[Rfam]
RNA sequence: GGGGGGAAAUCGGAUCCUGGGCUGUGUCCGCCGGCGCCCUGGGCUCCUAGGCCUGCGCUGUUGGAAUCGCGCUCCUGGCCGUGCAGCCCCCU
Numbered sequence: 001g002g003g004g005g006g007a008a009a010u011c012g013g014a015u016c017c018u019g020g021g022c023u024g025u026g027u028c029c030g031c032c033g034g035c036g037c038c039c040u041g042g043g044c045u046c047c048u049a050g051g052c053c054u055g056c057g058c059u060g061u062u063g064g065a066a067u068c069g070c071g072c073u074c075c076u077g078g079c080c081g082u083g084c085a086g087c088c089c090c091c092u
Base pairs, nucleotide, nucleotide: 001092002091003090004089005088006087010083011081012080013079016078017077019075020074021073023071024070025069026068027065028064031063032060033059034058035057036056037055041053043052044051045050

About this RNA:
Rfam assigns this 92-nucleotide RNA sequence from Canis lupus to the family "mir-8799 microRNA precursor family". Its Rfam clan is "mir-8791 microRNA precursor clan". Rfam's curators put it in the seed alignment. The source organism's lineage runs through Eukaryota, Eumetazoa, Vertebrata, Theria and Canis lupus.